[Rfam]
The record is a 67-nucleotide sequence from Pontibacillus yanchengensis, which matches "Bacillaceae-1 RNA" in Rfam.

RNA sequence: AUUAAAUGAGGUUCGAUUAAGGUCGCUGCAUCGUGCAGCAACAUCGAACUGACCUACAUCCUGUACG
Numbered sequence: 001a002u003u004a005a006a007u008g009a010g011g012u013u014c015g016a017u018u019a020a021g022g023u024c025g026c027u028g029c030a031u032c033g034u035g036c037a038g039c040a041a042c043a044u045c046g047a048a049c050u051g052a053c054c055u056a057c058a059u060c061c062u063g064u065a066c067g
Base pairs, nucleotide, nucleotide: 011049012048013047014046015045016044017043025039026038027037028036029035053067055065056064057063

The family has 95 seed sequences and 5,721 matches in Rfam 15.1.
It is annotated as a small RNA.